RNA sequence: GUUGCCUUAAUGAUGUGAAUGGAGUAAAGCUUUCGGGACAUUCAUUUGCUGAUUGCGCACAAC
Numbered sequence: 001g002u003u004g005c006c007u008u009a010a011u012g013a014u015g016u017g018a019a020u021g022g023a024g025u026a027a028a029g030c031u032u033u034c035g036g037g038a039c040a041u042u043c044a045u046u047u048g049c050u051g052a053u054u055g056c057g058c059a060c061a062a063c
Base pairs, nucleotide, nucleotide: 001063002062003061004060015049016048017047018046019045020044021043022042023041030037031036